[Rfam]
RNA sequence: GGGAGUGUGGCCUCCCGAUGUCUGCCUGCAGGGGCUGGCUUCAAACCACCCCAUGCUGUUGCGGUCAAAAGCCGUGGUGGUGAGCGAUGGGGAAAAGGCGGAGUUGAUCCGUCAGGU
Numbered sequence: 001g002g003g004a005g006u007g008u009g010g011c012c013u014c015c016c017g018a019u020g021u022c023u024g025c026c027u028g029c030a031g032g033g034g035c036u037g038g039c040u041u042c043a044a045a046c047c048a049c050c051c052c053a054u055g056c057u058g059u060u061g062c063g064g065u066c067a068a069a070a071g072c073c074g075u076g077g078u079g080g081u082g083a084g085c086g087a088u089g090g091g092g093a094a095a096a097g098g099c100g101g102a103g104u105u106g107a108u109c110c111g112u113c114a115g116g117u
Stems, first nucleotide, its partner, number of pairs: 001016005017042002020039003024035004047116001049092006055081002058078003062074004097113006
RNA: Group II catalytic intron D1-D4-2
Organism: Synechococcus sp. CBW1002